RNA: HNH endonuclease-associated RNA and ORF (HEARO) RNA
Organism: Defluviitoga tunisiensis
RNA sequence: GUCAAUUACUCACCGCCCCUAGAGGCGGGGGCUGUAGAAAUACAAGCUCGGUUGAUUAGCCUAUGUCAUUAGCUUUUGCUAAUGAUUAGUUAUAGCAGAAUAUAUAGUCACCGUGGGAUGCUCCACAAGUCCCAUGCUCUGAGGGUAAUGGUUAAACAUCUCUGAGGGGUAGGAGAAGUGCUGUUACCAUUAAACCUGCUAUAACAUUGGCGAUGUGGACCUAC
Numbered sequence: 001g002u003c004a005a006u007u008a009c010u011c012a013c014c015g016c017c018c019c020u021a022g023a024g025g026c027g028g029g030g031g032c033u034g035u036a037g038a039a040a041u042a043c044a045a046g047c048u049c050g051g052u053u054g055a056u057u058a059g060c061c062u063a064u065g066u067c068a069u070u071a072g073c074u075u076u077u078g079c080u081a082a083u084g085a086u087u088a089g090u091u092a093u094a095g096c097a098g099a100a101u102a103u104a105u106a107g108u109c110a111c112c113g114u115g116g117g118a119u120g121c122u123c124c125a126c127a128a129g130u131c132c133c134a135u136g137c138u139c140u141g142a143g144g145g146u147a148a149u150g151g152u153u154a155a156a157c158a159u160c161u162c163u164g165a166g167g168g169g170u171a172g173g174a175g176a177a178g179u180g181c182u183g184u185u186a187c188c189a190u191u192a193a194a195c196c197u198g199c200u201a202u203a204a205c206a207u208u209g210g211c212g213a214u215g216u217g218g219a220c221c222u223a224c
Stems, first nucleotide, its partner, number of pairs: 001056007011031001013029002018025002033044004059211003063207001065086008089205010108142002112136008122219006144188009156179002159176005165170001